[Rfam]
RNA sequence: UAGGCGGAUAGGAACCAAAUAGACCCUCAAUGGUCGUUUUGGGCCGAUAACCCGCCAAAAUAAUUAGGUGUUUGACGGUCGCGUUCUAGUCCGGUCCAUGGAUAGUAUGCAAUUCAAAUCAGCACGACACUA
Numbered sequence: 001u002a003g004g005c006g007g008a009u010a011g012g013a014a015c016c017a018a019a020u021a022g023a024c025c026c027u028c029a030a031u032g033g034u035c036g037u038u039u040u041g042g043g044c045c046g047a048u049a050a051c052c053c054g055c056c057a058a059a060a061u062a063a064u065u066a067g068g069u070g071u072u073u074g075a076c077g078g079u080c081g082c083g084u085u086c087u088a089g090u091c092c093g094g095u096c097c098a099u100g101g102a103u104a105g106u107a108u109g110c111a112a113u114u115c116a117a118a119u120c121a122g123c124a125c126g127a128c129a130c131u132a
Stems, first nucleotide, its partner, number of pairs: 003056005011045002015042005022035004068125005077120003081110002084107001086105003090102004

Rfam assigns this 132-nucleotide sequence from Bursaphelenchus xylophilus to the family "Nematode snoRNA ceN39".
For this family Rfam cites "Systematic identification of non-coding RNA 2,2,7-trimethylguanosine cap structures in Caenorhabditis elegans" (Jia et al., BMC Mol Biol, 2007).
It scores 37 bits against the family's covariance model.
Lineage of the source: Eukaryota > Opisthokonta > Eumetazoa > Protostomia > Bursaphelenchus.